The record is a 171-nucleotide sequence from Triticum aestivum, which matches "MIR2118 microRNA precursor family" in Rfam. The literature on the family includes a 2009 paper in Nucleic Acids Res by Xue et al., "Characterization and expression profiles of miRNAs in rice seeds". The match comes from Rfam's covariance-model search (130 bits). NCBI's taxonomy places the organism under Eukaryota, Streptophytina, Poaceae, Triticodae, Triticum.
RNA sequence: GUCGAGAAGAGGAAGAAAAGAGAGCCUGAGAGCAGUGGGAAUGGGAACAUGGAGGAAACCCUAACUUGCUUUGUUUUCACCUCUAGUGUAGGAGGUGAGAAUUCAGCCUGGUGUUUCCCGAUGCCUCCUAUUCCUAUUGUUCUCAAGCACUCCUUCCUUUUCUUUUGGCUU
Numbered sequence: 001g002u003c004g005a006g007a008a009g010a011g012g013a014a015g016a017a018a019a020g021a022g023a024g025c026c027u028g029a030g031a032g033c034a035g036u037g038g039g040a041a042u043g044g045g046a047a048c049a050u051g052g053a054g055g056a057a058a059c060c061c062u063a064a065c066u067u068g069c070u071u072u073g074u075u076u077u078c079a080c081c082u083c084u085a086g087u088g089u090a091g092g093a094g095g096u097g098a099g100a101a102u103u104c105a106g107c108c109u110g111g112u113g114u115u116u117c118c119c120g121a122u123g124c125c126u127c128c129u130a131u132u133c134c135u136a137u138u139g140u141u142c143u144c145a146a147g148c149a150c151u152c153c154u155u156c157c158u159u160u161u162c163u164u165u166u167g168g169c170u171u
Stems, first nucleotide, its partner, number of pairs: 009162005015156003020152003025147001027145008036136011048123003052119001054118005060113001